[Rfam]
RNA sequence: CCUGCUGUUCUGCCGGCAGUGGCCUUGCUCGACCGUGCGUCGCCGGUCACCGCGAGGUGCAAAGCAUCGAGGGCAACGACCGGGGCCGGGAGGCGUAGUCGAGUCGCGAGGCAACAACGAAAAGCAGCCCAUGUUGCGUGU
Numbered sequence: 001c002c003u004g005c006u007g008u009u010c011u012g013c014c015g016g017c018a019g020u021g022g023c024c025u026u027g028c029u030c031g032a033c034c035g036u037g038c039g040u041c042g043c044c045g046g047u048c049a050c051c052g053c054g055a056g057g058u059g060c061a062a063a064g065c066a067u068c069g070a071g072g073g074c075a076a077c078g079a080c081c082g083g084g085g086c087c088g089g090g091a092g093g094c095g096u097a098g099u100c101g102a103g104u105c106g107c108g109a110g111g112c113a114a115c116a117a118c119g120a121a122a123a124g125c126a127g128c129c130c131a132u133g134u135u136g137c138g139u140g141u
Stems, first nucleotide, its partner, number of pairs: 002019006029070004035060004040055004045050001083096001085094003099119001104111002124137005
Shown here is a 141-nucleotide RNA sequence from Paraburkholderia humisilvae, a member of the family "Group II catalytic intron D1-D4-7".
It scores 52 bits against the family's covariance model.
About the family: Group II introns are found in rRNA, tRNA and mRNA of organelles in fungi, plants and protists, and also in mRNA in bacteria.
NCBI's taxonomy places the organism under Bacteria, Pseudomonadota, Betaproteobacteria, Burkholderiales, Paraburkholderia.
On this family, see Bonen and Vogel, Trends Genet 2001: "The ins and outs of group II introns".
Rfam 15.1 lists 1,296 matches to the family in 705 species.